RNA sequence: GGCAUUUUUAUUUGAACCACGAUUAGCCCCGGAAACUAAUUGUGAUGAAAUAUAAUAA
Numbered sequence: 001g002g003c004a005u006u007u008u009u010a011u012u013u014g015a016a017c018c019a020c021g022a023u024u025a026g027c028c029c030c031g032g033a034a035a036c037u038a039a040u041u042g043u044g045a046u047g048a049a050a051u052a053u054a055a056u057a058a
Stems, first nucleotide, its partner, number of pairs: 008058005018044009
Ribosomal protein L13 leader: a 58-nucleotide RNA from Lentibacillus salicampi. On this family, see Zengel and Lindahl, Prog Nucleic Acid Res Mol Biol 1994: "Diverse mechanisms for regulating ribosomal protein synthesis in Escherichia coli". Rfam's curators write: This family is a putative r-protein leader autoregulatory structure found in B. subtilis and other low-GC Gram-positive bacteria. It is located in the 5' untranslated regions of mRNAs encoding the L13-S9 (rplM-rpsI) ribosomal protein operon. Lineage of the source: Bacteria > Bacillati > Bacilli > Caryophanales > Lentibacillus. Pairs were carried over by alignment from the consensus structure, which was predicted with CMfinder.